Rfam assigns this 121-nucleotide sequence from Glycine max to the family "MIR1520 microRNA precursor family". The family has 18 seed sequences and 1,934 matches in Rfam 15.1. Its family is annotated with miRNA-mediated post-transcriptional gene silencing and RISC complex in the Gene Ontology. The source organism's lineage runs through Eukaryota, Tracheophyta, Magnoliopsida, eudicotyledons and Glycine subgen. Soja.

[Rfam]
RNA sequence: UUCUGAUUGGAUGAUAACUGUCAUGUGUUAGGUUUUGAUUUAAUAUUGACUCUAUGGACGAUGAAAAUGUAUUGUUGUUGUCAACGUUCAAUUAGAACGUGACAUGUGAUUGUCAUCGUCC
Number, nucleotide and partner (000 for none) at each position: 001u000002u000003c000004u000005g000006a000007u000008u000009g000010g000011a000012u000013g000014a000015u000016a000017a000018c000019u000020g110021u109022c108023a107024u000025g105026u104027g000028u000029u101030a100031g000032g000033u097034u096035u095036u094037g000038a092039u091040u090041u000042a000043a000044u000045a000046u000047u000048g000049a000050c000051u000052c000053u000054a000055u000056g000057g000058a000059c000060g000061a000062u000063g000064a000065a000066a000067a000068u000069g000070u000071a000072u000073u000074g000075u000076u000077g000078u000079u000080g000081u000082c000083a000084a000085c000086g000087u000088u000089c000090a040091a039092u038093u000094a036095g035096a034097a033098c000099g000100u030101g029102a000103c000104a026105u025106g000107u023108g022109a021110u020111u000112g000113u000114c000115a000116u000117c000118g000119u000120c000121c000